[Rfam]
RNA sequence: UGUGAGGCCCGGGCCCCUCUGGCGGUCUGCCCCCCCGGCACCCGCGAUGUCGGGCCUCCCAC
Numbered sequence: 001u002g003u004g005a006g007g008c009c010c011g012g013g014c015c016c017c018u019c020u021g022g023c024g025g026u027c028u029g030c031c032c033c034c035c036c037g038g039c040a041c042c043c044g045c046g047a048u049g050u051c052g053g054g055c056c057u058c059c060c061a062c
Base pairs, nucleotide, nucleotide: 006056007055008054009053010052011051012050022045023044024043025042028040029039030038
Dot-bracket structure: .....(((((((.........((((..(((.......))).))))....)))))))......

Rfam assigns this 62-nucleotide sequence from Falsiroseomonas stagni to the family "terC RNA". The family's consensus secondary structure is taken from published work. A search with the family's covariance model found it, with a score of 48 bits.